[Rfam]
RNA sequence: UCUCCCGCUUCUCCUCCCUGAGCGGGGACCUUCGGCAAUGAAGGUCUUUAUGCCCCGGCCCAACCCCUUGGCCGGGGCUUUUUAU
Numbered sequence: 001u002c003u004c005c006c007g008c009u010u011c012u013c014c015u016c017c018c019u020g021a022g023c024g025g026g027g028a029c030c031u032u033c034g035g036c037a038a039u040g041a042a043g044g045u046c047u048u049u050a051u052g053c054c055c056c057g058g059c060c061c062a063a064c065c066c067c068u069u070g071g072c073c074g075g076g077g078c079u080u081u082u083u084a085u
Stems, first nucleotide, its partner, number of pairs: 004026006028045007053077008

A member of the RNA family "Burkholderia RNA 7 (anti-hemB)" from Betaproteobacteria bacterium SCN2, 85 nucleotides long. Taxonomically the source falls in Betaproteobacteria (Bacteria, Pseudomonadati, Pseudomonadota). The match comes from Rfam's covariance-model search (73 bits). Gene Ontology terms of the family: protein binding and bacterial biofilm matrix. Pairs were carried over by alignment from the consensus structure, which is taken from published work.